[Rfam]
RNA sequence: ACCGCGCACUUACCUACUAUACAGUAGCCGAAAUACAUGUAUCCCUUCUACUAUAUAGUAGGUAAGUACGCGGUUU
Dot-bracket structure: ((((((.((((((((.(((((.(((((..(..(((....)))..)..))))).))))).)))))))).))))))..

mir-7563 microRNA precursor family: a 76-nucleotide sequence from Ameiurus melas. Gene Ontology terms of the family: miRNA-mediated post-transcriptional gene silencing and RISC complex. The family has 3 seed sequences and 362 matches in Rfam 15.1.